RNA sequence: UUGUAACACGGACUGGUGCUAAAGGGUCCUGCCCAACGGCUACUGGUGCUGUCGGGGCAGGGACCCUUUAGCACCGGUUCUUGUUACCAA
Numbered sequence: 001u002u003g004u005a006a007c008a009c010g011g012a013c014u015g016g017u018g019c020u021a022a023a024g025g026g027u028c029c030u031g032c033c034c035a036a037c038g039g040c041u042a043c044u045g046g047u048g049c050u051g052u053c054g055g056g057g058c059a060g061g062g063a064c065c066c067u068u069u070a071g072c073a074c075c076g077g078u079u080c081u082u083g084u085u086a087c088c089a090a
Stems, first nucleotide, its partner, number of pairs: 003087006010080018029061002032056003036052002

The record is a 90-nucleotide RNA sequence from Sorghum bicolor, which matches "MIR5387 microRNA precursor family" in Rfam.
A search with the family's covariance model found it, with a score of 80 bits.
The family's consensus secondary structure was predicted with RNAalifold.
The source organism's lineage runs through Eukaryota, Streptophyta, Tracheophyta, Petrosaviidae and Sorghum.
Its family is annotated with miRNA-mediated post-transcriptional gene silencing and RISC complex in the Gene Ontology.